[Rfam]
RNA sequence: AAGGGUGCAGUGAUGAACCAUCUUUCGUGGACUAGAGUUUCUGAUCUGGGAAUUUGUCCCAGAAGCUGAAGACUAACCCUUGGCUGUCUGAGUACUCUU
Numbered sequence: 001a002a003g004g005g006u007g008c009a010g011u012g013a014u015g016a017a018c019c020a021u022c023u024u025u026c027g028u029g030g031a032c033u034a035g036a037g038u039u040u041c042u043g044a045u046c047u048g049g050g051a052a053u054u055u056g057u058c059c060c061a062g063a064a065g066c067u068g069a070a071g072a073c074u075a076a077c078c079c080u081u082g083g084c085u086g087u088c089u090g091a092g093u094a095c096u097c098u099u
Base pairs, nucleotide, nucleotide: 001099002098003097004096005095006094007093008092038071039070040069041068045064046062047061048060049059050058

Small nucleolar RNA Z157/R69/R10: a 99-nucleotide RNA sequence from Hevea brasiliensis. The family has 10 seed sequences and 836 matches in Rfam 15.1. The literature on the family includes a 2003 paper in Nucleic Acids Res by Chen et al., "The high diversity of snoRNAs in plants: identification and comparative study of 120 snoRNA genes from Oryza sativa". Rfam links the family to the GO terms nucleolus and RNA processing. NCBI's taxonomy places the organism under Eukaryota, Embryophyta, Magnoliopsida, Mesangiospermae, Hevea.